[Rfam]
RNA sequence: GAGUCUGACAUGUGUGCGAGUCAACGGGCGAGAAAACCCGUAAGGCGUAAGGAAGCUAAUUGGCGGGAUCCCCUUCGGGGGUUGCACCGCCGACUGACCUUGAUCUUCUGAGAAGGGUUCGAGUGAGAGCAUACCUGUCGGGACCCGAAAGAUGGUGAACUAUGCCUGAGCGGGGCGAAGCCAGAGGAAACUCUGGUGGAGGCCCGAAGCGAUACUGACGUGCAAAUCGUUCGUCUGACUUGGGUAUAGGGGCGAAAGACUAAUCGAACCAUCUAGUAGCUGGUU
Numbered sequence: 001g002a003g004u005c006u007g008a009c010a011u012g013u014g015u016g017c018g019a020g021u022c023a024a025c026g027g028g029c030g031a032g033a034a035a036a037c038c039c040g041u042a043a044g045g046c047g048u049a050a051g052g053a054a055g056c057u058a059a060u061u062g063g064c065g066g067g068a069u070c071c072c073c074u075u076c077g078g079g080g081g082u083u084g085c086a087c088c089g090c091c092g093a094c095u096g097a098c099c100u101u102g103a104u105c106u107u108c109u110g111a112g113a114a115g116g117g118u119u120c121g122a123g124u125g126a127g128a129g130c131a132u133a134c135c136u137g138u139c140g141g142g143a144c145c146c147g148a149a150a151g152a153u154g155g156u157g158a159a160c161u162a163u164g165c166c167u168g169a170g171c172g173g174g175g176c177g178a179a180g181c182c183a184g185a186g187g188a189a190a191c192u193c194u195g196g197u198g199g200a201g202g203c204c205c206g207a208a209g210c211g212a213u214a215c216u217g218a219c220g221u222g223c224a225a226a227u228c229g230u231u232c233g234u235c236u237g238a239c240u241u242g243g244g245u246a247u248a249g250g251g252g253c254g255a256a257a258g259a260c261u262a263a264u265c266g267a268a269c270c271a272u273c274u275a276g277u278a279g280c281u282g283g284u285u
Stems, first nucleotide, its partner, number of pairs: 005141006012134006020046003025040004050057002063090004070081004093124002144283002147280001151273006160249011171237001173205004180197007209234004214230002217228002251261002
Archaeal large subunit ribosomal RNA: a 285-nucleotide part of an RNA from Tripterygium wilfordii.
The source organism's lineage runs through Eukaryota, Embryophyta, Euphyllophyta, Magnoliopsida and Tripterygium.